RNA sequence: GCUAGAAUAUAGCAGUUGCCAGAGACAGCAGGUGGAGUCAUCCGUAAGUCCUGCCGAGGUGCGCUGAAUAUAAAAUUUCUGCGUGUCUUUCUGUCUUGUGGCAGAAGGACUUUUUUAUUUUCGGA
Numbered sequence: 001g002c003u004a005g006a007a008u009a010u011a012g013c014a015g016u017u018g019c020c021a022g023a024g025a026c027a028g029c030a031g032g033u034g035g036a037g038u039c040a041u042c043c044g045u046a047a048g049u050c051c052u053g054c055c056g057a058g059g060u061g062c063g064c065u066g067a068a069u070a071u072a073a074a075a076u077u078u079c080u081g082c083g084u085g086u087c088u089u090u091c092u093g094u095c096u097u098g099u100g101g102c103a104g105a106a107g108g109a110c111u112u113u114u115u116u117a118u119u120u121u122c123g124g125a
Base pairs, nucleotide, nucleotide: 028054029053030052031051032050034043035042036041085110086109087108088107089106090105091104092103093102094101

Rfam assigns this 125-nucleotide RNA from Firmicutes bacterium CAG:110 to the family "Ribosomal protein L10 leader". On this family, see Iben and Draper, Biochemistry 2008: "Specific interactions of the L10(L12)4 ribosomal protein complex with mRNA, rRNA, and L11". The family's RNA type in Rfam is cis-regulatory leader. The organism belongs to Bacillota, within Bacteria. Rfam describes the family as follows. This family is a putative r-protein leader autoregulatory structure found in B. subtilis and other low-GC Gram-positive bacteria.